Description
Small nucleolar RNA SNORA15: a 136-nucleotide sequence from Dryobates pubescens. It scores 72 bits against the family's covariance model. About the family: ACA15 is a member of the H/ACA class of snoRNA that guide the sites of modification of uridines to pseudouridines.

RNA sequence: GCAUGGACGAAUUCUGCACUAGCUUUCCUCAGUAGCUAAUGCAGUCAGACACUAUGCCAGAGCAAGCUCCUUUUUCACACUGGUUGGCAUGCUGCUGAUGUGAGAGGGGGCAUGCCUUUGGAAGAGGGGUACAGAA
Numbered sequence: 001g002c003a004u005g006g007a008c009g010a011a012u013u014c015u016g017c018a019c020u021a022g023c024u025u026u027c028c029u030c031a032g033u034a035g036c037u038a039a040u041g042c043a044g045u046c047a048g049a050c051a052c053u054a055u056g057c058c059a060g061a062g063c064a065a066g067c068u069c070c071u072u073u074u075u076c077a078c079a080c081u082g083g084u085u086g087g088c089a090u091g092c093u094g095c096u097g098a099u100g101u102g103a104g105a106g107g108g109g110g111c112a113u114g115c116c117u118u119u120g121g122a123a124g125a126g127g128g129g130u131a132c133a134g135a136a
Stems, first nucleotide, its partner, number of pairs: 001057006014044005068129003071125007086116008